[Rfam]
RNA sequence: AGGCCUGCAGAGAGAGAGGCAGGGUCUGAUCUGCAGCCUCUGUCGCAGCUGUUGAUCUGCCUUUGCCUCUGUCUUUCUCUCCU
Numbered sequence: 001a002g003g004c005c006u007g008c009a010g011a012g013a014g015a016g017a018g019g020c021a022g023g024g025u026c027u028g029a030u031c032u033g034c035a036g037c038c039u040c041u042g043u044c045g046c047a048g049c050u051g052u053u054g055a056u057c058u059g060c061c062u063u064u065g066c067c068u069c070u071g072u073c074u075u076u077c078u079c080u081c082c083u
Stems, first nucleotide, its partner, number of pairs: 010075004015070008024061001026059001028057004034051004

The record is an 83-nucleotide RNA from Myotis lucifugus, which matches "mir-574 microRNA precursor family" in Rfam. It scores 84 bits against the family's covariance model. Taxonomically the source falls in Myotis (Eukaryota, Sarcopterygii, Mammalia, Laurasiatheria). The base pairs follow the family's consensus structure, which was predicted with RNAalifold.